RNA sequence: GUUUGUCGUAAAGCGCCAGGACUGCAAGGGACGGAUUCUUGCAGUUGACGAGGUGGAGGAGUAUCGAACCGGAUCGGCGGAUACCUCCCGGCUUCGCGUCAAAGCCGAGGAGCCAUGGUACAAACCGGCAGGGUGACUUGCUGAACAAAGACCGUGGCAUGACGCGUU
Number, nucleotide and partner (000 for none) at each position: 001g000002u000003u000004u000005g000006u000007c000008g000009u000010a000011a000012a000013g000014c000015g000016c000017c000018a000019g000020g046021a045022c044023u043024g042025c041026a040027a039028g000029g037030g000031a000032c000033g000034g000035a000036u000037u029038c000039u027040u026041g025042c024043a023044g022045u021046u020047g000048a000049c000050g000051a000052g000053g000054u000055g088056g087057a086058g085059g084060a000061g000062u000063a000064u077065c076066g075067a074068a000069c000070c000071g000072g000073a000074u067075c066076g065077g064078c000079g000080g000081a000082u000083a000084c059085c058086u057087c056088c055089c107090g106091g105092c104093u103094u102095c000096g000097c000098g000099u000100c000101a000102a094103a093104g092105c091106c090107g089108a000109g000110g000111a000112g158113c157114c156115a155116u154117g153118g152119u000120a000121c000122a000123a000124a000125c000126c143127g142128g141129c140130a139131g138132g137133g000134u000135g000136a000137c132138u131139u130140g129141c128142u127143g126144a000145a000146c000147a000148a000149a000150g000151a000152c118153c117154g116155u115156g114157g113158c112159a000160u000161g000162a000163c000164g000165c000166g000167u000168u000
The record is a 168-nucleotide RNA sequence from Lihuaxuella thermophila, which matches "glmS glucosamine-6-phosphate activated ribozyme aptamer" in Rfam. Lineage of the source: Bacteria > Bacillota > Bacilli > Caryophanales > Lihuaxuella. It scores 107 bits against the family's covariance model. Rfam links the family to the GO terms regulation of gene expression and catalytic activity. A reference for the family is Jansen et al. (2006), "Backbone and nucleobase contacts to glucosamine-6-phosphate in the glmS ribozyme", Nat Struct Mol Biol. The base pairs follow the family's consensus structure, which is taken from published work.